Rfam assigns this 136-nucleotide RNA from Planomonospora parontospora to the family "c-di-AMP riboswitch aptamer (ydaO/yuaA leader)".
RNA sequence: AGGUCAUGGACGCCGAAUCCGCGACCCCGCGGAACCGGGGACCCACCUCCCCUGGGGUGAAUCAGCGCCCGCGCGCUGUAGGGCACUUCCUGGCCCGAACCCGUCAGCUAACCCGGUAGGCGGCACGGAAGCCGAG
Numbered sequence: 001a002g003g004u005c006a007u008g009g010a011c012g013c014c015g016a017a018u019c020c021g022c023g024a025c026c027c028c029g030c031g032g033a034a035c036c037g038g039g040g041a042c043c044c045a046c047c048u049c050c051c052c053u054g055g056g057g058u059g060a061a062u063c064a065g066c067g068c069c070c071g072c073g074c075g076c077u078g079u080a081g082g083g084c085a086c087u088u089c090c091u092g093g094c095c096c097g098a099a100c101c102c103g104u105c106a107g108c109u110a111a112c113c114c115g116g117u118a119g120g121c122g123g124c125a126c127g128g129a130a131g132c133c134g135a136g
Stems, first nucleotide, its partner, number of pairs: 011122004018033005034117006044054002055102003063078004081096004

Taxonomically the source falls in Planomonospora parontospora (Bacteria, Actinomycetes, Streptosporangiales, Planomonospora).